[Rfam]
RNA sequence: UAUUAGGUUGGUGCAAAAAUAAUGUCGUUUUUUGACGUUCAAUUUAACGUCAAAAAACGACAUUAUUUUUGCACCAACCUAAUA
Number, nucleotide and partner (000 for none) at each position: 001u084002a083003u082004u081005a080006g079007g078008u077009u076010g075011g074012u073013g072014c071015a070016a069017a068018a067019a066020u065021a064022a063023u062024g061025u060026c059027g058028u057029u056030u055031u054032u053033u052034g051035a050036c049037g048038u047039u046040c000041a000042a000043u000044u000045u000046a039047a038048c037049g036050u035051c034052a033053a032054a031055a030056a029057a028058c027059g026060a025061c024062a023063u022064u021065a020066u019067u018068u017069u016070u015071g014072c013073a012074c011075c010076a009077a008078c007079c006080u005081a004082a003083u002084a001
RNA: mir-548 microRNA precursor family